[Rfam]
MIR5269 microRNA precursor family: a 79-nucleotide sequence from Medicago truncatula.

RNA sequence: UUGAGUAAAAUCAAUGUAGGACCUACACUUUGAAAAUGGAACCCACAUAAAGUGGUGGAACAUACAUUGAUUUCACCAA
Numbered sequence: 001u002u003g004a005g006u007a008a009a010a011u012c013a014a015u016g017u018a019g020g021a022c023c024u025a026c027a028c029u030u031u032g033a034a035a036a037u038g039g040a041a042c043c044c045a046c047a048u049a050a051a052g053u054g055g056u057g058g059a060a061c062a063u064a065c066a067u068u069g070a071u072u073u074c075a076c077c078a079a
Stems, first nucleotide, its partner, number of pairs: 001079003005076002008073011023058003026054007
Lineage of the source: Eukaryota > Tracheophyta > fabids > Fabales > Medicago.